[Rfam]
RNA sequence: UCAGACAGAUAAGCUUUUUGUUUGCGUUAUGUUUUAAUUACAAUAUAAGACGAACAAAAAGUUUGUCUGUUUGCAU
Dot-bracket structure: ..((((.((.((((((((.(..((..((((((..........))))))..))..).)))))))).)).))))....